This 346-nucleotide RNA from Dialister sp. CAG:486 belongs to the Rfam family "Bacterial RNase P class A".
Rfam classes the family as a ribozyme.
Lineage of the source: Bacteria > Bacillati > Bacillota > Veillonellaceae > Dialister.
[Rfam]
RNA sequence: CGAGCAGGAAAGAUGAUUGCGGGCCGUAAGGCGUGAGGAAAGUCCGAGCUUCGCAGGGCAGGAUGCCGGAUAACGUCCGGCGGGAGUGAUCCUAGGGAAAGUGCCAUAGAAAAGGAAACCGCCACGCAAGUGGUAAGGGUGGAAAGGUGCGGUAAGAGCGCACCAGCAGUCGGGAGACCGGCUGGCUUGGUAAACCCCAUCCGAAGCAAGACCGAAUAGGGAAGGGUUGAGGUUGCCCGCUGACCUUCCGGGUUGCGUCGCUUGAGCAGUCGAGCAAUCGGCUGACUAGACAGAUAAUCAUCACCACGCAAGUGGGACAGAACUCGGCUUAUUGAAUGCUCGCCUU
Number, nucleotide and partner (000 for none) at each position: 001c342002g341003a340004g339005c338006a337007g000008g000009a000010a333011a332012g302013a301014u300015g299016a298017u297018u296019g000020c035021g034022g000023g032024c031025c030026g000027u000028a000029a000030g025031g024032c023033g000034u021035g020036a000037g000038g000039a000040a330041a329042g328043u000044c327045c326046g325047a324048g323049c206050u205051u204052c203053g000054c000055a000056g238057g237058g236059c235060a000061g202062g201063a200064u199065g198066c080067c079068g078069g077070a076071u000072a000073a000074c000075g000076u070077c069078c068079g067080g066081c095082g093083g092084g091085a090086g000087u000088g000089a000090u085091c084092c083093u082094a000095g081096g197097g196098a000099a000100a000101g195102u194103g191104c190105c189106a000107u000108a000109g000110a000111a000112a000113a000114g000115g000116a000117a000118a000119c138120c137121g134122c133123c132124a131125c130126g000127c000128a000129a000130g125131u124132g123133g122134u121135a000136a000137g120138g119139g000140u000141g000142g000143a000144a000145a000146g164147g163148u162149g161150c160151g159152g000153u000154a000155a000156g000157a000158g000159c151160g150161c149162a148163c147164c146165a000166g186167c184168a183169g182170u181171c180172g179173g178174g000175a000176g000177a000178c173179c172180g171181g170182c169183u168184g167185g000186c166187u000188u000189g105190g104191u103192a000193a000194a102195c101196c097197c096198c065199a064200u063201c062202c061203g052204a051205a050206g049207c000208a000209a000210g259211a258212c257213c255214g000215a000216a000217u000218a000219g000220g249221g248222a247223a246224g245225g244226g000227u000228u000229g000230a000231g241232g240233u239234u000235g059236c058237c057238c056239g233240c232241u231242g000243a000244c225245c224246u223247u222248c221249c220250g000251g000252g000253u000254u000255g213256c000257g212258u211259c210260g000261c000262u000263u000264g000265a000266g000267c284268a283269g282270u281271c280272g279273a278274g000275c000276a000277a000278u273279c272280g271281g270282c269283u268284g267285a000286c000287u000288a000289g000290a000291c000292a000293g000294a000295u000296a018297a017298u016299c015300a014301u013302c012303a000304c000305c000306a000307c000308g000309c000310a000311a000312g000313u000314g000315g000316g000317a000318c000319a000320g000321a000322a000323c048324u047325c046326g045327g044328c042329u041330u040331a000332u011333u010334g000335a000336a000337u006338g005339c004340u003341c002342g001343c000344c000345u000346u000